[Rfam]
RNA sequence: GAGACACCCUUAUGGAGCAGGACUUGGUUCAGUGGGCCUUUGGUGCUCACUGAGUCUAUCCCUUGAGGGUGUCACU
Numbered sequence: 001g002a003g004a005c006a007c008c009c010u011u012a013u014g015g016a017g018c019a020g021g022a023c024u025u026g027g028u029u030c031a032g033u034g035g036g037c038c039u040u041u042g043g044u045g046c047u048c049a050c051u052g053a054g055u056c057u058a059u060c061c062c063u064u065g066a067g068g069g070u071g072u073c074a075c076u
Stems, first nucleotide, its partner, number of pairs: 001075001003073005009067004014062002017059001019057001021056003029053008038043001